Shown here is a 68-nucleotide sequence from Apostichopus japonicus, a member of the family "Small nucleolar RNA R38".
RNA sequence: UUCUGACAAUGAUGAUUAAAGUUAUCCCUGUCUUAAUAUAUUUGAUGACUUAACUUUCUGAGCCAGAU
Numbered sequence: 001u002u003c004u005g006a007c008a009a010u011g012a013u014g015a016u017u018a019a020a021g022u023u024a025u026c027c028c029u030g031u032c033u034u035a036a037u038a039u040a041u042u043u044g045a046u047g048a049c050u051u052a053a054c055u056u057u058c059u060g061a062g063c064c065a066g067a068u
Stems, first nucleotide, its partner, number of pairs: 002067004007062001
Record summary
It scores 52 bits against the family's covariance model. The family's RNA type in Rfam is C/D-box small nucleolar RNA. On this family, see Bachellerie et al., Trends Biochem Sci 1995: "Antisense snoRNAs: a family of nucleolar RNAs with long complementarities to rRNA". The organism belongs to Apostichopus, within Eukaryota. Its family is annotated with RNA processing and nucleolus in the Gene Ontology. Rfam describes the family as follows. snoR38 is a C/D box small nucleolar RNA conserved across yeast, human, Arabidopsis and rice. It is encoded in the intron of elongation factor-1 gamma in both pombe and cerevisiae. snoR38 guides the methylation of 2'-O-ribose sites in 28S rRNA.